[Rfam]
Background
The family of this 165-nucleotide RNA sequence from Klebsiella indica is "sroC RNA". This family consists of a number of bacterial sroC RNA genes of around 160 bases in length. sroC is found in several Enterobacterial species. It base-pairs with GcvB. This interaction triggers the degradation of GcvB by RNase E, alleviating the GcvB-mediated mRNA repression of other amino acid-related transport and metabolic genes. A search with the family's covariance model found it, with a score of 156 bits. The family's consensus secondary structure was predicted with PFOLD.
RNA sequence: ACUAAUUACAAAAACAAGGGGCGGGAAAAUCCUGCCCUCCCGAUCGUUGUUACAGUACGGACAGACUAUACGGCGGCUGGUCGUUCCCCAGCCGCCGCGAAUACCGAAACAAGCUGAGCAAUGAUCUUCGAGGGUAGCGCUGCUACCCUUUUUUUCCAGGAGUUA
Numbered sequence: 001a002c003u004a005a006u007u008a009c010a011a012a013a014a015c016a017a018g019g020g021g022c023g024g025g026a027a028a029a030u031c032c033u034g035c036c037c038u039c040c041c042g043a044u045c046g047u048u049g050u051u052a053c054a055g056u057a058c059g060g061a062c063a064g065a066c067u068a069u070a071c072g073g074c075g076g077c078u079g080g081u082c083g084u085u086c087c088c089c090a091g092c093c094g095c096c097g098c099g100a101a102u103a104c105c106g107a108a109a110c111a112a113g114c115u116g117a118g119c120a121a122u123g124a125u126c127u128u129c130g131a132g133g134g135u136a137g138c139g140c141u142g143c144u145a146c147c148c149u150u151u152u153u154u155u156c157c158a159g160g161a162g163u164u165a
Stems, first nucleotide, its partner, number of pairs: 012164002019037004023032002038133002041130002043125005049119002058106003062099001072096009